[Rfam]
RNA: Group II catalytic intron D1-D4-3
RNA sequence: UAGUCCAAGAGGAUGUGUGCGGAGGGCUUGAAGGCAAACCCCGGAACAGAUGGCAAAACCACAUUGGCUGGCGAGAUCGGAUAACCCUACAAAAGAAGGGGACGUCCAAUACCACUGUUGAUCUCGUAAGUUAGAAGGACUGGAUUCGGGUGAAAGUCGUUGAC
Numbered sequence: 001u002a003g004u005c006c007a008a009g010a011g012g013a014u015g016u017g018u019g020c021g022g023a024g025g026g027c028u029u030g031a032a033g034g035c036a037a038a039c040c041c042c043g044g045a046a047c048a049g050a051u052g053g054c055a056a057a058a059c060c061a062c063a064u065u066g067g068c069u070g071g072c073g074a075g076a077u078c079g080g081a082u083a084a085c086c087c088u089a090c091a092a093a094a095g096a097a098g099g100g101g102a103c104g105u106c107c108a109a110u111a112c113c114a115c116u117g118u119u120g121a122u123c124u125c126g127u128a129a130g131u132u133a134g135a136a137g138g139a140c141u142g143g144a145u146u147c148g149g150g151u152g153a154a155a156g157u158c159g160u161u162g163a164c
Stems, first nucleotide, its partner, number of pairs: 003014004028163004034157002040150005047142003059138002067131003071127007079107004085100004